[Rfam]
A member of the RNA family "6S / SsrS RNA" from Rhodovulum imhoffii, 158 nucleotides long. Rfam describes the family as follows. E. coli 6S RNA was the first non coding RNA to be sequenced, but its function was unknown until recently. It consists of 184 nucleotides that fold into an extended hairpin structure with a large single-stranded internal bulge. The 6S RNA specifically associates with RNA polymerase holoenzyme containing the sigma70 specificity factor. This interaction represses expression from a sigma70-dependent promoter during stationary phase. 6S RNA homologs have recently been identified in most bacterial genomes.
RNA sequence: CGGGUUCUGCCCCUCUCGUCACGAGGUCAAAUUCCGGUGGCCUUAAGCAAAUCCGAGGGAGCCGGCUCUGUCCGGGCCGUGGCCCGGUUACCUGGCGCCCACCUGUUCGUACAGGUCCUCGGGAAUUCGUUGCCUCAACGGUUGCUGGUGGUCCCGCC
Numbered sequence: 001c002g003g004g005u006u007c008u009g010c011c012c013c014u015c016u017c018g019u020c021a022c023g024a025g026g027u028c029a030a031a032u033u034c035c036g037g038u039g040g041c042c043u044u045a046a047g048c049a050a051a052u053c054c055g056a057g058g059g060a061g062c063c064g065g066c067u068c069u070g071u072c073c074g075g076g077c078c079g080u081g082g083c084c085c086g087g088u089u090a091c092c093u094g095g096c097g098c099c100c101a102c103c104u105g106u107u108c109g110u111a112c113a114g115g116u117c118c119u120c121g122g123g124a125a126u127u128c129g130u131u132g133c134c135u136c137a138a139c140g141g142u143u144g145c146u147g148g149u150g151g152u153c154c155c156g157c158c
Stems, first nucleotide, its partner, number of pairs: 003155002007151005012144001015141001017140003032125004037120001039118001040116003057100003061096005070089001072087006
A search with the family's covariance model found it, with a score of 49 bits. Pairs were carried over by alignment from the consensus structure, which is taken from published work.